About this RNA:
dauA ncRNA motif: an 89-nucleotide RNA sequence from Streptomyces azureus. By type it is a cis-regulatory element. Rfam's curators write: dauA ncRNA motif was reported as a strong cis regulatory motif candidate, with potential to be a cis regulatory riboswitch type, it have been identified in genomes of the genus Streptomyces.

RNA sequence: UCACCCCGUAUCGGCGGCACGCCGCGAGGGCCGGUCCCGGUCCGCCCGCGCGGCACUCUCCGACGGGCAUCCUGAACCGAGGAGCCAUG
Numbered sequence: 001u002c003a004c005c006c007c008g009u010a011u012c013g014g015c016g017g018c019a020c021g022c023c024g025c026g027a028g029g030g031c032c033g034g035u036c037c038c039g040g041u042c043c044g045c046c047c048g049c050g051c052g053g054c055a056c057u058c059u060c061c062g063a064c065g066g067g068c069a070u071c072c073u074g075a076a077c078c079g080a081g082g083a084g085c086c087a088u089g
Stems, first nucleotide, its partner, number of pairs: 002084001004082002011063004016057002020052003026047001028043006066078002